[Rfam]
RNA: mir-184 microRNA precursor family
Organism: Pelusios castaneus
RNA sequence: CCAUUCUCAUCUCCUUAUCACUUUUCCAGCCCAGCUUUCUCACUGUAACUGUUGGACGGAGAACUGAUAAGGAUAUGUGACUGA
Numbered sequence: 001c002c003a004u005u006c007u008c009a010u011c012u013c014c015u016u017a018u019c020a021c022u023u024u025u026c027c028a029g030c031c032c033a034g035c036u037u038u039c040u041c042a043c044u045g046u047a048a049c050u051g052u053u054g055g056a057c058g059g060a061g062a063a064c065u066g067a068u069a070a071g072g073a074u075a076u077g078u079g080a081c082u083g084a
Stems, first nucleotide, its partner, number of pairs: 012073009022063006030055002